[Rfam]
This 88-nucleotide RNA sequence from Brevibacillus panacihumi belongs to the Rfam family "BsrC".
The family's RNA type in Rfam is small RNA.
Rfam 15.1 lists 572 matches to the family in 553 species.
The 301 nucleotide sequence from Kouji Nakamura has been trimmed to a highly conserved ~85 nucleotide long core to form this family.
The source organism's lineage runs through Bacteria, Bacillota, Bacilli, Brevibacillus and Brevibacillus panacihumi.

RNA sequence: GAAACCAAAAACAACGAAAGCCCUUCCUCUCUUCCAUCCUUGCGGCUCCGAUGACCGCGCCAGUGUGAAUCAGAUAUCAAAAACGCAA
Numbered sequence: 001g002a003a004a005c006c007a008a009a010a011a012c013a014a015c016g017a018a019a020g021c022c023c024u025u026c027c028u029c030u031c032u033u034c035c036a037u038c039c040u041u042g043c044g045g046c047u048c049c050g051a052u053g054a055c056c057g058c059g060c061c062a063g064u065g066u067g068a069a070u071c072a073g074a075u076a077u078c079a080a081a082a083a084c085g086c087a088a
Stems, first nucleotide, its partner, number of pairs: 035067002039063002041059005047053001